[Rfam]
Source information:
The record is a 115-nucleotide RNA sequence from Anoxybacter fermentans, which matches "FMN riboswitch aptamer (RFN element)" in Rfam. Rfam describes the family as follows. The RFN element is a highly conserved domain that is found frequently in the 5'-untranslated regions of prokaryotic mRNAs that encode for flavin mononucleotide (FMN) biosynthesis and transport proteins. A search with the family's covariance model found it, with a score of 120 bits.
RNA sequence: CAUGAUCUUCAGGACAGGGUGAAAUUCCCGACCGGUGGUGAAAGUCCACGAGCCUUAUGGCUGAUCUGGUGAAAUUCCAGAACCGACGGUAUAGUCCGGAUGGGAGAAGAUAUUG
Numbered sequence: 001c002a003u004g005a006u007c008u009u010c011a012g013g014a015c016a017g018g019g020u021g022a023a024a025u026u027c028c029c030g031a032c033c034g035g036u037g038g039u040g041a042a043a044g045u046c047c048a049c050g051a052g053c054c055u056u057a058u059g060g061c062u063g064a065u066c067u068g069g070u071g072a073a074a075u076u077c078c079a080g081a082a083c084c085g086a087c088g089g090u091a092u093a094g095u096c097c098g099g100a101u102g103g104g105a106g107a108a109g110a111u112a113u114u115g
Stems, first nucleotide, its partner, number of pairs: 005111006017029003031095002033085002035049004044083002052061003065081005087098003